[Rfam]
RNA: tRNA
RNA sequence: GUCCCCGUAGCUCAGCUGGAUAGAGCACUCGCCUCCUAAGCGAGGGGUCGGAGGUUCGAAUCCUCUCGAGGACG
Numbered sequence: 001g002u003c004c005c006c007g008u009a010g011c012u013c014a015g016c017u018g019g020a021u022a023g024a025g026c027a028c029u030c031g032c033c034u035c036c037u038a039a040g041c042g043a044g045g046g047g048u049c050g051g052a053g054g055u056u057c058g059a060a061u062c063c064u065c066u067c068g069a070g071g072a073c074g
Base pairs, nucleotide, nucleotide: 001073002072003071004070006068007067010026011025012024013023028044029043030042031041032040050066051065052064053063054062